[Rfam]
Overview:
This 436-nucleotide sequence from Novosphingobium sp. Fuku2-ISO-50 belongs to the Rfam family "Bacterial RNase P class A". By type it is a ribozyme. A search with the family's covariance model found it, with a score of 264 bits. Rfam's curators write: Ribonuclease P (RNase P) is a ubiquitous endoribonuclease, found in archaea, bacteria and eukarya as well as chloroplasts and mitochondria.

RNA sequence: CCAGGGGGCCGGGCAGCCGCGUCAUCGCUUUGUCGAUGCCGAGGAAAGUCCGGGCUCCAUGAAACAAGGGUGGCGGGUAACGCCCGCCGGCUCCGGACUUGCUCCGGGGUCAGGGAAAGUGCCACAGAGAACAGACCGCCAAACCGGAGCAAUCCGGCGGCAAGGGUGAAACGGUGCGGUAAAAGCGCACCGCGCGCGCCGGUAACGGCCGCGGCACGGCAAACCCCACCCGGAGCAAGACCGAAUAGGGGCGACGCGCCGGGGUAUCCGGCAGGCGGGUUUCACGCCAAGAGUCGAAAGGCUCUGCGCCGUCCGGGUUGGUUGCUUGAGCGUCGCAGCAAUGCGCCGCCUAGAGGAAUGGCUGCCCGUGCCGAUACGGUCCGACAAUCGGAUACCGUCGGUGCGACAGAACCCGGCUUACAGGCCCCCUGGCAUC
Numbered sequence: 001c002c003a004g005g006g007g008g009c010c011g012g013g014c015a016g017c018c019g020c021g022u023c024a025u026c027g028c029u030u031u032g033u034c035g036a037u038g039c040c041g042a043g044g045a046a047a048g049u050c051c052g053g054g055c056u057c058c059a060u061g062a063a064a065c066a067a068g069g070g071u072g073g074c075g076g077g078u079a080a081c082g083c084c085c086g087c088c089g090g091c092u093c094c095g096g097a098c099u100u101g102c103u104c105c106g107g108g109g110u111c112a113g114g115g116a117a118a119g120u121g122c123c124a125c126a127g128a129g130a131a132c133a134g135a136c137c138g139c140c141a142a143a144c145c146g147g148a149g150c151a152a153u154c155c156g157g158c159g160g161c162a163a164g165g166g167u168g169a170a171a172c173g174g175u176g177c178g179g180u181a182a183a184a185g186c187g188c189a190c191c192g193c194g195c196g197c198g199c200c201g202g203u204a205a206c207g208g209c210c211g212c213g214g215c216a217c218g219g220c221a222a223a224c225c226c227c228a229c230c231c232g233g234a235g236c237a238a239g240a241c242c243g244a245a246u247a248g249g250g251g252c253g254a255c256g257c258g259c260c261g262g263g264g265u266a267u268c269c270g271g272c273a274g275g276c277g278g279g280u281u282u283c284a285c286g287c288c289a290a291g292a293g294u295c296g297a298a299a300g301g302c303u304c305u306g307c308g309c310c311g312u313c314c315g316g317g318u319u320g321g322u323u324g325c326u327u328g329a330g331c332g333u334c335g336c337a338g339c340a341a342u343g344c345g346c347c348g349c350c351u352a353g354a355g356g357a358a359u360g361g362c363u364g365c366c367c368g369u370g371c372c373g374a375u376a377c378g379g380u381c382c383g384a385c386a387a388u389c390g391g392a393u394a395c396c397g398u399c400g401g402u403g404c405g406a407c408a409g410a411a412c413c414c415g416g417c418u419u420a421c422a423g424g425c426c427c428c429c430u431g432g433c434a435u436c
Stems, first nucleotide, its partner, number of pairs: 001432010011421001012366007020041002023038005046419003050416005055235004065300001068231005073087005088113001089111009114226002119224002121220003136165002138161003144157005173191006192215001193213004198209004239323004249314005293307002296304002330349003334345004